[Rfam]
RNA: MIR6154 microRNA precursor family
RNA sequence: CCCAAUAGCCCUUACUCCAGGUAGAUCCACCAGAACAUGAAGUUCAAGGUGGGUCUCCUGGAGAAAGGUCCUUUGGU
Numbered sequence: 001c002c003c004a005a006u007a008g009c010c011c012u013u014a015c016u017c018c019a020g021g022u023a024g025a026u027c028c029a030c031c032a033g034a035a036c037a038u039g040a041a042g043u044u045c046a047a048g049g050u051g052g053g054u055c056u057c058c059u060g061g062a063g064a065a066a067g068g069u070c071c072u073u074u075g076g077u
Base pairs, nucleotide, nucleotide: 002076003075004074005073008070009068010067012066013065015063016062017061018060019059020058021057023056024055025054026053027052028051029050030049031048033045034044035043036042